The record is a 304-nucleotide RNA sequence from Solanum lycopersicum, which matches "Plant signal recognition particle RNA" in Rfam. Gene Ontology terms of the family: SRP-dependent cotranslational protein targeting to membrane, signal sequence recognition and signal recognition particle, endoplasmic reticulum targeting. The family is grouped with related families in Rfam's "SRP clan". NCBI's taxonomy places the organism under Eukaryota, Viridiplantae, Euphyllophyta, Solanum, Solanum subgen. Lycopersicon. The literature on the family includes a 2002 paper in Curr Opin Struct Biol by Wild et al., "Towards the structure of the mammalian signal recognition particle".
Nucleotides: 304
Base pairs, nucleotide, nucleotide: 001040002039003038004023005022006021007020008019009018010017028037029036030035044303045302047300048299049298050297051296052295053294056291057290058288059287060286061284062283063282065280066279068278069277070276074272075271076270078263079262080261081260083258084257085256087253088252089251091250092249098247099246100245101244103242104241106236107235110233111232112231113230115227116226117225118224119223120222121221122220123219125164126163127162128161129160130159133156136153137152138151139150141148142147165170172217173216174215175214176213181210183208184207185206190201191200192199
Number, partner (000 for none) and nucleotide at each position: 001040g002039c003038c004023g005022a006021g007020c008019u009018u010017a011000g012000u013000a014000a015000c016000a017010u018009g019008g020007g021006c022005u023004u024000g025000u026000a027000a028037c029036c030035c031000a032000a033000g034000u035030g036029g037028g038003g039002g040001c041000a042000u043000u044303a045302g046000u047300g048299u049298g050297g051296u052295g053294g054000a055000a056291u057290g058288u059287u060286g061284g062283g063282c064000u065280g066279u067000u068278c069277c070276a071000g072000a073000u074272g075271g076270u077000u078263g079262g080261g081260c082000c083258u084257g085256g086000c087253g088252g089251g090000c091250u092249a093000a094000u095000u096000u097000a098247u099246g100245g101244c102000c103242u104241g105000c106236c107235c108000u109000g110233u111232c112231c113230a114000a115227g116226c117225a118224u119223a120222g121221a122220g123219u124000u125164g126163g127162g128161c129160c130159u131000u132000g133156c134000u135000a136153u137152c138151c139150a140000a141148u142147c143000g144000a145000a146000g147142g148141a149000a150139u151138g152137g153136g154000c155000u156133g157000a158000u159130g160129g161128g162127u163126u164125c165170c166000u167000a168000a169000a170165g171000u172217g173216g174215a175214a176213c177000g178000g179000a180000c181210u182000g183208c184207g185206u186000g187000a188000g189000g190201c191200u192199g193000g194000u195000u196000u197000c198000a199192c200191a201190g202000a203000g204000c205000a206185a207184c208183g209000a210181a211000c212000a213176g214175u215174u216173c217172c218000c219123g220122c221121u222120c223119u224118a225117u226116g227115c228000a229000g230113u231112g232111g233110a234000a235107g236106g237000a238000u239000a240000a241104c242103g243000a244101g245100u246099c247098g248000g249092u250091a251089c252088c253087c254000u255000c256085c257084u258083a259000a260081g261080u262079c263078c264000a265000a266000u267000a268000a269000c270076g271075c272074c273000u274000g275000a276070u277069g278068g279066g280065c281000u282063g283062c284061u285000c286060c287059a288058a289000u290057u291056a292000a293000a294053c295052c296051a297050c298049c299048a300047c301000u302045u303044u304000u